[Rfam]
RNA sequence: UCAAACGUGGUUCGAAACCAUCCCACGAUAAAAAACUAAGGAGAG
Dot-bracket structure: .....(((((.....[......))))).........]........
This 45-nucleotide RNA from Heyndrickxia oleronia belongs to the Rfam family "PreQ1 (pre queuosine) riboswitch aptamer".
Rfam 15.1 lists 873 matches to the family in 692 species.
A search with the family's covariance model found it, with a score of 56 bits.
The source organism's lineage runs through Bacteria, Bacilli, Caryophanales, Bacillaceae and Heyndrickxia.
On this family, see Schroeder et al., Nucleic Acids Res 2023: "A riboswitch separated from its ribosome-binding site still regulates translation".
The base pairs follow the family's consensus structure.